[Rfam]
RNA sequence: CGCUCCAACAUCCCCGCACCAGGGCAGCUUCCCUAUGGCCAGGGGCGGGGAAGGCUGAGCUCUGGGGCUGGAGUC
Numbered sequence: 001c002g003c004u005c006c007a008a009c010a011u012c013c014c015c016g017c018a019c020c021a022g023g024g025c026a027g028c029u030u031c032c033c034u035a036u037g038g039c040c041a042g043g044g045g046c047g048g049g050g051a052a053g054g055c056u057g058a059g060c061u062c063u064g065g066g067g068c069u070g071g072a073g074u075c
Base pairs, nucleotide, nucleotide: 002074003073004072005071006070007069014059016068017067019065020064021063022062023060025057026056027055028054029053030052032050033049034048